[Rfam]
RNA sequence: UCUGGUCAAUGAUGAGACUAUACUGAUAGUGGACGGUUGGAUGAAGCUUGCGGAUAUGGGACUGAGGCCAGAG
Numbered sequence: 001u002c003u004g005g006u007c008a009a010u011g012a013u014g015a016g017a018c019u020a021u022a023c024u025g026a027u028a029g030u031g032g033a034c035g036g037u038u039g040g041a042u043g044a045a046g047c048u049u050g051c052g053g054a055u056a057u058g059g060g061a062c063u064g065a066g067g068c069c070a071g072a073g
Stems, first nucleotide, its partner, number of pairs: 001072005
Small nucleolar RNA SNORD99: a 73-nucleotide RNA from Megalops atlanticus. Rfam classes the family as a C/D-box small nucleolar RNA. The family has 23 seed sequences and 673 matches in Rfam 15.1. The base pairs follow the family's consensus structure, which was predicted with RNAalifold. A search with the family's covariance model found it, with a score of 71 bits. Clan: SNORD58 clan. The source organism's lineage runs through Eukaryota, Craniata, Vertebrata, Teleostei and Megalops.